[Rfam]
The family of this 189-nucleotide RNA sequence from Nocardiopsis sp. L17-MgMaSL7 is "Actinobacteria sRNA Ms_IGR-5". A search with the family's covariance model found it, with a score of 99 bits. Pairs were carried over by alignment from the consensus structure.

RNA sequence: ACGCAGGAAAGGAGGUGGUCCGAGAAAUGAUUCAUUCAAGGACUGGCGAGGUGGCCGUCCGCUAGGGCGACGCCGAGCAUUCGCUCGACGUCGUUCGUGCGAAUACCUGACGGACACCCGAACCCCGGGCUGCCGGACCUGGUCCGACCGGCCCCGCACCCGCGGGACAGAGCCCGGGGUUCGCCCAUG
Numbered sequence: 001a002c003g004c005a006g007g008a009a010a011g012g013a014g015g016u017g018g019u020c021c022g023a024g025a026a027a028u029g030a031u032u033c034a035u036u037c038a039a040g041g042a043c044u045g046g047c048g049a050g051g052u053g054g055c056c057g058u059c060c061g062c063u064a065g066g067g068c069g070a071c072g073c074c075g076a077g078c079a080u081u082c083g084c085u086c087g088a089c090g091u092c093g094u095u096c097g098u099g100c101g102a103a104u105a106c107c108u109g110a111c112g113g114a115c116a117c118c119c120g121a122a123c124c125c126c127g128g129g130c131u132g133c134c135g136g137a138c139c140u141g142g143u144c145c146g147a148c149c150g151g152c153c154c155c156g157c158a159c160c161c162g163c164g165g166g167a168c169a170g171a172g173c174c175c176g177g178g179g180u181u182c183g184c185c186c187a188u189g
Stems, first nucleotide, its partner, number of pairs: 014059006060101003065096002068093003119183013133151004138146001